[Rfam]
RNA sequence: AGCCGGGCACGCGACUGGCGAUAGGCGCGCCUGACUCCUUAGGUCGGGUGGCGCUGACGUGGACAGACCACCGGGAAGCGUGCCACGGGAUAGGCGGCAAGCCUCGUCCGGUGUUCAGCCGUUCGCCUGGGCAGCCCCC
Numbered sequence: 001a002g003c004c005g006g007g008c009a010c011g012c013g014a015c016u017g018g019c020g021a022u023a024g025g026c027g028c029g030c031c032u033g034a035c036u037c038c039u040u041a042g043g044u045c046g047g048g049u050g051g052c053g054c055u056g057a058c059g060u061g062g063a064c065a066g067a068c069c070a071c072c073g074g075g076a077a078g079c080g081u082g083c084c085a086c087g088g089g090a091u092a093g094g095c096g097g098c099a100a101g102c103c104u105c106g107u108c109c110g111g112u113g114u115u116c117a118g119c120c121g122u123u124c125g126c127c128u129g130g131g132c133a134g135c136c137c138c139c
Stems, first nucleotide, its partner, number of pairs: 003087001006084007015075002017127005059071004116134001118132003
The record is a 139-nucleotide RNA from Curvibacter sp. PAE-UM, which matches "ZMP/ZTP riboswitch aptamer (pfl RNA motif)" in Rfam. Lineage of the source: Bacteria > Pseudomonadati > Betaproteobacteria > Comamonadaceae > Curvibacter.